[Rfam]
RNA sequence: UCAGAAGUUCAAGGCCGGAGCAGAAACGCUCACGGCAUGGCCCUGCCAGAUUCUAACAAAUCAGUGGAUUCUGCU
Number, nucleotide and partner (000 for none) at each position: 001u000002c000003a000004g000005a000006a000007g000008u000009u000010c000011a000012a000013g042014g041015c040016c039017g000018g000019a075020g074021c073022a072023g071024a070025a069026a038027c000028g036029c000030u000031c000032a000033c000034g000035g000036c028037a000038u026039g016040g015041c014042c013043c000044u000045g000046c000047c064048a000049g062050a061051u060052u059053c000054u000055a000056a000057c000058a000059a052060a051061u050062c049063a000064g047065u000066g000067g000068a000069u025070u024071c023072u022073g021074c020075u019
Annotation:
Mammalian CPEB3 ribozyme: a 75-nucleotide RNA sequence from Crocodylus porosus. The base pairs follow the family's consensus structure, which is taken from published work. The mammalian CPEB3 ribozyme is a self cleaving RNA located in the second intron of the CPEB3 gene which belongs to a family of genes regulating messenger RNA polyadenylation. A search with the family's covariance model found it, with a score of 38 bits. A reference for the family is Salehi-Ashtiani et al. (2006), "A genomewide search for ribozymes reveals an HDV-like sequence in the human CPEB3 gene", Science.